[Rfam]
RNA sequence: AUCGGGUUCGGGGACAUGGUGCCCAAGACCUGCAUGGGUAUGAUUGUUGGCAGUCUUUGCGCGCUGACCGGCGUUCUGACAAUUGCACUUCCGGUUCCGGUCAUCGUCAGCAAU
Numbered sequence: 001a002u003c004g005g006g007u008u009c010g011g012g013g014a015c016a017u018g019g020u021g022c023c024c025a026a027g028a029c030c031u032g033c034a035u036g037g038g039u040a041u042g043a044u045u046g047u048u049g050g051c052a053g054u055c056u057u058u059g060c061g062c063g064c065u066g067a068c069c070g071g072c073g074u075u076c077u078g079a080c081a082a083u084u085g086c087a088c089u090u091c092c093g094g095u096u097c098c099g100g101u102c103a104u105c106g107u108c109a110g111c112a113a114u
Base pairs, nucleotide, nucleotide: 001114002113004111009106010105011104013102014101015100018097019096021095022094037077038076040074050062051061
RNA: Potassium channel RNA editing signal
Organism: Soboliphyme baturini